RNA sequence: GUAGAGGACCAACGUGCUACCAUGUAAAGCAACUUCAGACCAUAGUAAUAAGGAAUAAUAUGAAAUAUUGAAAUAUUAUGGUCUGAAGUUGCUUUACAUGGUAGCACGUUUACUCAC
Numbered sequence: 001g002u003a004g005a006g007g008a009c010c011a012a013c014g015u016g017c018u019a020c021c022a023u024g025u026a027a028a029g030c031a032a033c034u035u036c037a038g039a040c041c042a043u044a045g046u047a048a049u050a051a052g053g054a055a056u057a058a059u060a061u062g063a064a065a066u067a068u069u070g071a072a073a074u075a076u077u078a079u080g081g082u083c084u085g086a087a088g089u090u091g092c093u094u095u096a097c098a099u100g101g102u103a104g105c106a107c108g109u110u111u112a113c114u115c116a117c
Stems, first nucleotide, its partner, number of pairs: 004117001006115002011110018030091002033088015
A member of the RNA family "mir-2513 microRNA precursor family" from Drosophila persimilis, 117 nucleotides long. The family's consensus secondary structure was predicted with RNAalifold. The organism belongs to Sophophora, within Eukaryota. Gene Ontology terms of the family: miRNA-mediated post-transcriptional gene silencing and RISC complex.